[Rfam]
RNA sequence: UAGAUACCCAUCAUGUCUUUUGCUCUGCAGUCAGUAAAUAUUUAUUUAUGAAUGUGUAGCAGAAGACAGACUGGGGAUCCA
Numbered sequence: 001u002a003g004a005u006a007c008c009c010a011u012c013a014u015g016u017c018u019u020u021u022g023c024u025c026u027g028c029a030g031u032c033a034g035u036a037a038a039u040a041u042u043u044a045u046u047u048a049u050g051a052a053u054g055u056g057u058a059g060c061a062g063a064a065g066a067c068a069g070a071c072u073g074g075g076g077a078u079c080c081a
Stems, first nucleotide, its partner, number of pairs: 003079003008074003014068011026056004031051003035048004
The family of this 81-nucleotide RNA sequence from Heterocephalus glaber is "mir-511 microRNA precursor family". NCBI's taxonomy places the organism under Eukaryota, Craniata, Eutheria, Hystricomorpha, Heterocephalus. Pairs were carried over by alignment from the consensus structure, which was predicted with RNAalifold. Clan: mir-506 microRNA precursor clan. Its family is annotated with RISC complex and miRNA-mediated post-transcriptional gene silencing in the Gene Ontology. A reference for the family is Ahn et al. (2010), "MicroRNA transcriptome in the newborn mouse ovaries determined by massive parallel sequencing", Mol Hum Reprod.